A member of the RNA family "Selenocysteine transfer RNA" from Zophobas morio, 91 nucleotides long. The family has 109 seed sequences and 4,211 matches in Rfam 15.1. The family's consensus secondary structure is taken from published work.
[Rfam]
RNA sequence: GGAAAGGGAUGUGUUACUGGUGUACACACUAGCCUCCGAAGCUAUGUUGGGGUGUAAAAGUCCUUGGUAAGUUCGAUUCUUUCACCUUUCC
Numbered sequence: 001g002g003a004a005a006g007g008g009a010u011g012u013g014u015u016a017c018u019g020g021u022g023u024a025c026a027c028a029c030u031a032g033c034c035u036c037c038g039a040a041g042c043u044a045u046g047u048u049g050g051g052g053u054g055u056a057a058a059a060g061u062c063c064u065u066g067g068u069a070a071g072u073u074c075g076a077u078u079c080u081u082u083c084a085c086c087u088u089u090c091c
Stems, first nucleotide, its partner, number of pairs: 001091007008083001011027003015024003030044004049064004069081003